[Rfam]
Background
The record is a 158-nucleotide sequence from Erinaceus europaeus, which matches "Small nucleolar RNA SNORA17" in Rfam. The organism belongs to Erinaceus, within Eukaryota. On this family, see Ofengand and Bakin, J Mol Biol 1997: "Mapping to nucleotide resolution of pseudouridine residues in large subunit ribosomal RNAs from representative eukaryotes, prokaryotes, archaebacteria, mitochondria and chloroplasts". snoRNA ACA 17 belongs to the H/ACA family of snoRNAs and is predicted to guide pseudouridylation of the 28S rRNA at positions U4659 and U4598. It shares the same host gene together with ACA43. NB This family has a high threshold value to exclude a large number of closely related sequences that do not appear to have conserved H and ACA boxes, and may be pseudogenes. The family has 53 seed sequences and 5,784 matches in Rfam 15.1. The family's consensus secondary structure was predicted with RNAalifold. The family's RNA type in Rfam is H/ACA-box small nucleolar RNA.
RNA sequence: CCUGCCCCUCGAGGUGUUAACAGAUGUGGCUGCUGUGCCACUUGUGUCUCUAGGUGGCAGAGAGGAGAGAGAGAGGGAAAGAGGGAGAGAGGGAGAGGGGCUUGUCCAUGUCCAGUGCUCUGACCUAUGAGCAACUGGGUGAUCGAUAGCCUGGCACU
Numbered sequence: 001c002c003u004g005c006c007c008c009u010c011g012a013g014g015u016g017u018u019a020a021c022a023g024a025u026g027u028g029g030c031u032g033c034u035g036u037g038c039c040a041c042u043u044g045u046g047u048c049u050c051u052a053g054g055u056g057g058c059a060g061a062g063a064g065g066a067g068a069g070a071g072a073g074a075g076g077g078a079a080a081g082a083g084g085g086a087g088a089g090a091g092g093g094a095g096a097g098g099g100g101c102u103u104g105u106c107c108a109u110g111u112c113c114a115g116u117g118c119u120c121u122g123a124c125c126u127a128u129g130a131g132c133a134a135c136u137g138g139g140u141g142a143u144c145g146a147u148a149g150c151c152u153g154g155c156a157c158u
Base pairs, nucleotide, nucleotide: 002060003059004058005057006056007054008053009052011050013048014047015046020045021044026041027040028039029038030037095155098152099151100150101149102148103146109141110140112138113137114136115135116133117132118131119130120129